[Rfam]
RNA sequence: GGUGAUAAAGUGUGGCGUGCAAUAGAUGCAGCGGACCCGGGGGCGGUACCCGGCGGCUCCACCACCUGUUUCGUUUGCGAGAGCGGGGCAGAUGACGGGGCCGAACUAGGAUCGACGUGUAUUGAAAAGCGCUGCUUUUGCCCGGGCUGAGUAACCCGUUCAAGGCUCAAAACCCACAAGUGCCAACGAUAACGAAGCACUCGCUCUCGCCGCGUAA
Numbered sequence: 001g002g003u004g005a006u007a008a009a010g011u012g013u014g015g016c017g018u019g020c021a022a023u024a025g026a027u028g029c030a031g032c033g034g035a036c037c038c039g040g041g042g043g044c045g046g047u048a049c050c051c052g053g054c055g056g057c058u059c060c061a062c063c064a065c066c067u068g069u070u071u072c073g074u075u076u077g078c079g080a081g082a083g084c085g086g087g088g089c090a091g092a093u094g095a096c097g098g099g100g101c102c103g104a105a106c107u108a109g110g111a112u113c114g115a116c117g118u119g120u121a122u123u124g125a126a127a128a129g130c131g132c133u134g135c136u137u138u139u140g141c142c143c144g145g146g147c148u149g150a151g152u153a154a155c156c157c158g159u160u161c162a163a164g165g166c167u168c169a170a171a172a173c174c175c176a177c178a179a180g181u182g183c184c185a186a187c188g189a190u191a192a193c194g195a196a197g198c199a200c201u202c203g204c205u206c207u208c209g210c211c212g213c214g215u216a217a
Base pairs, nucleotide, nucleotide: 001142002141003140004139005138015132016131017130018129027121028120029119031118032117033116037053038052039051040050041049054103055102056101057100058099059098060097143158144157145156146155
Source information: This 217-nucleotide RNA sequence from Novosphingobium sp. FSW06-99 belongs to the Rfam family "permuted transfer-messenger RNA". It is annotated as a non-coding RNA gene. The family's consensus secondary structure is taken from published work. Lineage of the source: Bacteria > Pseudomonadota > Sphingomonadales > Sphingomonadaceae > Novosphingobium. The match comes from Rfam's covariance-model search (135 bits). Its family is annotated with RNA catabolic process in the Gene Ontology. Bacterial tmRNA, also known as 10Sa RNA or SsrA, is named for its dual tRNA and mRNA-like properties. Its role is to liberate the mRNA from a stalled ribosome. To accomplish this part of the tmRNA is used as a reading frame that ends in a translation stop signal. The broken mRNA is replaced in the ribosome by the tmRNA and translation of the tmRNA leads to addition of a proteolysis tag to the incomplete protein enabling recognition by a protease. Recently a number of permuted tmRNA genes have been found encoded in two parts. tmRNAs have been identified in eubacteria and some chloroplasts but are absent from archaeal and eukaryote nuclear genomes.